[Rfam]
RNA sequence: CUUACAGAGUUUAUUGGCAUUCUGUCCACCUCCCAUCUGUAGAAAUCUGUCUCUCUCACGAGCUCACAUGGAGGUGGGCAUACUGCCAACUGAGCUCUGUUGG
Numbered sequence: 001c002u003u004a005c006a007g008a009g010u011u012u013a014u015u016g017g018c019a020u021u022c023u024g025u026c027c028a029c030c031u032c033c034c035a036u037c038u039g040u041a042g043a044a045a046u047c048u049g050u051c052u053c054u055c056u057c058a059c060g061a062g063c064u065c066a067c068a069u070g071g072a073g074g075u076g077g078g079c080a081u082a083c084u085g086c087c088a089a090c091u092g093a094g095c096u097c098u099g100u101u102g103g
Stems, first nucleotide, its partner, number of pairs: 011093001014089006023080011

Shown here is a 103-nucleotide RNA sequence from Manihot esculenta, a member of the family "MIR394 microRNA precursor family". A reference for the family is Jones-Rhoades and Bartel (2004), "Computational identification of plant microRNAs and their targets, including a stress-induced miRNA", Mol Cell. The base pairs follow the family's consensus structure, which was predicted with WAR. The family has 19 seed sequences and 724 matches in Rfam 15.1.